Rfam assigns this 128-nucleotide sequence from Sylvia atricapilla to the family "Small nucleolar RNA SNORA65". The source organism's lineage runs through Eukaryota, Sarcopterygii, Archelosauria, Saurischia and Sylvia. The literature on the family includes a 2001 paper in EMBO J by Huttenhofer et al., "RNomics: an experimental approach that identifies 201 candidates for novel, small, non-messenger RNAs in mouse". The family has 14 seed sequences and 1,089 matches in Rfam 15.1. U65 belongs to the H/ACA class of snoRNAs which are thought to guide the sites of modification of uridines to pseudouridines.
[Rfam]
RNA sequence: CCCGCCACUGUACCUGUUCUUCUCCUUGUGGCUGGUACAUUCCAGUGGUGAGCUGAGAGAAAGCCCCAGGCAGGAAGCAGUCCUCUCCUGCUUGUGGGGAGGCCUGUGCCGAAAACCUGGGAACAUUU
Number, nucleotide and partner (000 for none) at each position: 001c000002c000003c000004g000005c048006c047007a046008c045009u044010g043011u000012a000013c000014c000015u000016g000017u000018u035019c034020u000021u000022c000023u030024c000025c000026u000027u000028g000029u000030g023031g000032c000033u000034g019035g018036u000037a000038c000039a000040u000041u000042c000043c010044a009045g008046u007047g006048g005049u000050g000051a000052g000053c000054u000055g000056a000057g000058a000059g000060a000061a000062a000063g000064c121065c120066c119067c000068a118069g116070g000071c000072a000073g110074g109075a000076a000077g000078c106079a105080g104081u000082c102083c101084u000085c000086u098087c097088c096089u000090g000091c000092u000093u000094g000095u000096g088097g087098g086099g000100a000101g083102g082103c000104c080105u079106g078107u000108g000109c074110c073111g000112a000113a000114a000115a000116c069117c000118u068119g066120g065121g064122a000123a000124c000125a000126u000127u000128u000